[Rfam]
Nucleotides: 249
Base pairs, nucleotide, nucleotide: 001220002219003218004217005216007214008213009212016193017192018155019154020153021152022151023150024149025148027145028144029143035052038050039049040048041047062124063123064122065121066120067119077088099115100114101113161181162180163179194208195207196206197205226249227248228247230246231245232244233243234242235241
Number, partner (000 for none) and nucleotide at each position: 001220g002219c003218a004217a005216u006000a007214g008213a009212a010000u011000a012000g013000g014000u015000u016193u017192u018155c019154u020153c021152a022151g023150a024149g025148g026000u027145g028144g029143u030000c031000g032000g033000u034000a035052c036000c037000g038050u039049c040048c041047c042000g043000a044000a045000a046000g047041g048040g049039g050038g051000u052035g053000g054000u055000g056000c057000u058000g059000u060000a061000u062124g063123a064122c065121a066120g067119u068000u069000u070000u071000u072000g073000a074000g075000g076000c077088g078000u079000u080000g081000a082000u083000g084000c085000u086000u087000g088077u089000a090000u091000g092000u093000g094000c095000u096000u097000u098000u099115g100114c101113a102000a103000g104000c105000u106000u107000a108000g109000u110000c111000g112000u113101u114100g115099c116000u117000g118000u119067a120066c121065u122064g123063u124062c125000a126000u127000u128000u129000a130000a131000c132000c133000a134000a135000a136000a137000a138000a139000a140000a141000u142000a143029a144028u145027c146000c147000a148025c149024c150023u151022u152021u153020g154019a155018g156000u157000u158000a159000a160000c161181a162180g163179g164000c165000u166000c167000c168000g169000g170000u171000g172000g173000a174000u175000u176000a177000u178000u179163u180162c181161u182000g183000c184000u185000u186000g187000u188000u189000g190000c191000c192017g193016a194208u195207c196206c197205c198000c199000u200000u201000u202000g203000c204000a205197g206196g207195g208194a209000a210000c211000u212009u213008u214007c215000u216005g217004u218003u219002g220001u221000a222000a223000g224000g225000c226249c227248g228247u229000u230246u231245g232244g233243u234242g235241u236000a237000a238000c239000c240000a241235g242234c243233a244232c245231c246230a247228g248227c249226g